[Rfam]
RNA sequence: GGUUCGGGAGCCUCGCGGUGGGACGCGCGGCACGAAUGGAACCCCGCCCCUCAUUCGCCGCCUUGCGUCGCCCGGGCCCCGACGGUCUGCGCA
Numbered sequence: 001g002g003u004u005c006g007g008g009a010g011c012c013u014c015g016c017g018g019u020g021g022g023a024c025g026c027g028c029g030g031c032a033c034g035a036a037u038g039g040a041a042c043c044c045c046g047c048c049c050c051u052c053a054u055u056c057g058c059c060g061c062c063u064u065g066c067g068u069c070g071c072c073c074g075g076g077c078c079c080c081g082a083c084g085g086u087c088u089g090c091g092c093a
Stems, first nucleotide, its partner, number of pairs: 001043005010031003014027004064093004070087001072085003
Rhodo-rpoB RNA: a 93-nucleotide RNA from Paracoccus denitrificans. The source organism's lineage runs through Bacteria, Pseudomonadati, Paracoccaceae, Paracoccus and Paracoccus denitrificans. Rfam classes the family as a cis-regulatory element.